[Rfam]
RNA sequence: AAAGAUACAAGGAACGGGAAAAAGGAAAUUUCCUUGAUUUACAGAGAGCCGGCGGUUGGUGUAAGCCGGUAAGAAGAAAACUUCCAACACUCACCCGUGAGUAUUUCAGCCGAACUAAGUAAGCGGAAACGUCCAUUCACGUUACGAAUAGGAACACCAGAGUAUAAUGUAGGGUGGUACCGCGAAACUUUCGCCCCUAUC
Numbered sequence: 001a002a003a004g005a006u007a008c009a010a011g012g013a014a015c016g017g018g019a020a021a022a023a024g025g026a027a028a029u030u031u032c033c034u035u036g037a038u039u040u041a042c043a044g045a046g047a048g049c050c051g052g053c054g055g056u057u058g059g060u061g062u063a064a065g066c067c068g069g070u071a072a073g074a075a076g077a078a079a080a081c082u083u084c085c086a087a088c089a090c091u092c093a094c095c096c097g098u099g100a101g102u103a104u105u106u107c108a109g110c111c112g113a114a115c116u117a118a119g120u121a122a123g124c125g126g127a128a129a130c131g132u133c134c135a136u137u138c139a140c141g142u143u144a145c146g147a148a149u150a151g152g153a154a155c156a157c158c159a160g161a162g163u164a165u166a167a168u169g170u171a172g173g174g175u176g177g178u179a180c181c182g183c184g185a186a187a188c189u190u191u192c193g194c195c196c197c198u199a200u201c
Base pairs, nucleotide, nucleotide: 007102008101015097016096017095018094024085025084026083027082029080038072039071048070049069050068051067052066053065105128106127107126109124110123130141131140132139171198172197173196174195182194183193184192185191186190
Shown here is a 201-nucleotide sequence from Dialister succinatiphilus, a member of the family "T-box leader". Lineage of the source: Bacteria > Bacillati > Negativicutes > Veillonellaceae > Dialister succinatiphilus. The base pairs follow the family's consensus structure, which is taken from published work. Rfam describes the family as follows. Uncharged tRNA acts as the effector for transcription antitermination of genes in the T-box leader family. T-boxes are found upstream of many aminoacyl-tRNA synthetase genes and some amino acid biosynthetic genes usually in Gram-positive bacteria. The anticodon of a specific tRNA base pairs to a specifier sequence within the T-box motif, and the NCCA acceptor tail of the tRNA base pairs to a conserved bulge in the T-box antiterminator hairpin. It is annotated as a cis-regulatory leader.